[Rfam]
RNA sequence: AAGUCUAUCUUGCGCGCAAGCCAAUGGUCGUCCUCCGGAGCACCAAAGGCGCAGAAAACAUAACUUGAGUUGUGCGGGAUUACGGGCGCGGCUCUCUGCUCGUCCCUCCAUCCCCGGGUGUUGCAAUCGGCAUGCGGCUACCGGGACCCAGGCCGCAAGGCCCCCGGCACCGUGCCGCAACAUACCGUGAGUGUGCAGGAUGUGACCCGAAAGAUGGUGAACUAUGCCUGAUCAGGUUGAAGUCAGGGGAAACCCUGAUGGAGGACCGAAGCAGUUCUGACGUGCAAAUCGAUUGUCAGAAUUGGGCAUAGGGGCGAAAGACCAAUCGAACCAUCUAGUAGCUGGUU
Dot-bracket structure: .....((((((((((((..(((..((((.............))))..)))...(......).......(..((..(((((.....................)))))...))..).((((((((...(..............................................)...)))))).))....))))))))))))...((.(...((((((...((((((((((((.((((...(((((((....)))))))....))))...((((.((.((........))))))))..).))))))))))).((.......))......))))))......).))..
Source information
This 347-nucleotide part of an RNA from Aedes aegypti belongs to the Rfam family "Eukaryotic large subunit ribosomal RNA". The match comes from Rfam's covariance-model search (2696 bits).